Rfam assigns this 124-nucleotide sequence from Myotis myotis to the family "Small nucleolar RNA SNORA65". The match comes from Rfam's covariance-model search (75 bits). Rfam 15.1 lists 1,089 matches to the family in 619 species. About the family: U65 belongs to the H/ACA class of snoRNAs which are thought to guide the sites of modification of uridines to pseudouridines. Rfam classes the family as an H/ACA-box small nucleolar RNA.
RNA sequence: CUCAUACCUUACCAGUUGUCUGUUGACUGGUGCAAUCCACUAGUGAGCUGAUUCCAAAUCCCAGCUUAGGAAACAGGCUUGUUCUACAUGUGCAUAGCUCUGUGCAGAAAGCCUGGGAACAGUC
Numbered sequence: 001c002u003c004a005u006a007c008c009u010u011a012c013c014a015g016u017u018g019u020c021u022g023u024u025g026a027c028u029g030g031u032g033c034a035a036u037c038c039a040c041u042a043g044u045g046a047g048c049u050g051a052u053u054c055c056a057a058a059u060c061c062c063a064g065c066u067u068a069g070g071a072a073a074c075a076g077g078c079u080u081g082u083u084c085u086a087c088a089u090g091u092g093c094a095u096a097g098c099u100c101u102g103u104g105c106a107g108a109a110a111g112c113c114u115g116g117g118a119a120c121a122g123u124c
Base pairs, nucleotide, nucleotide: 001043002042011031012030013029014028015027017025018024060117061116062115063114064112065111066110067109070105074102075101076100077099079097082094084092